This 117-nucleotide RNA from Micrococcus terreus belongs to the Rfam family "SAM (S-adenosyl methionine) riboswitch aptamer". The family has 40 seed sequences and 2,360 matches in Rfam 15.1.
[Rfam]
RNA sequence: AAUCACGAGUGCCACCCUCUAUGAACCCUGGUUCCGUGGCCGGCAACCCUCCAUGCGUGUGGGGUGCUCCAGGUGAGGAUUCGGCCCGCAGCCCUCUGGUGCGGGCAAGACGCGACC
Numbered sequence: 001a002a003u004c005a006c007g008a009g010u011g012c013c014a015c016c017c018u019c020u021a022u023g024a025a026c027c028c029u030g031g032u033u034c035c036g037u038g039g040c041c042g043g044c045a046a047c048c049c050u051c052c053a054u055g056c057g058u059g060u061g062g063g064g065u066g067c068u069c070c071a072g073g074u075g076a077g078g079a080u081u082c083g084g085c086c087c088g089c090a091g092c093c094c095u096c097u098g099g100u101g102c103g104g105g106c107a108a109g110a111c112g113c114g115a116c117c
Stems, first nucleotide, its partner, number of pairs: 001081004009041001011040005024033002042068003047064003052059001084106007092099002
The organism belongs to Micrococcus, within Bacteria. Pairs were carried over by alignment from the consensus structure, which is taken from published work.